A member of the RNA family "JUMPstart RNA" from Salmonella enterica, 39 nucleotides long. NCBI's taxonomy places the organism under Bacteria, Pseudomonadota, Gammaproteobacteria, Salmonella, Salmonella enterica subsp. arizonae. The family's RNA type in Rfam is cis-regulatory element. The family has 128 seed sequences and 288 matches in Rfam 15.1.
[Rfam]
RNA sequence: UAGCCUUCAGGUUGCUGUGAAGCCUGGGGCGGUAGCGUG
Numbered sequence: 001u002a003g004c005c006u007u008c009a010g011g012u013u014g015c016u017g018u019g020a021a022g023c024c025u026g027g028g029g030c031g032g033u034a035g036c037g038u039g
Stems, first nucleotide, its partner, number of pairs: 008026005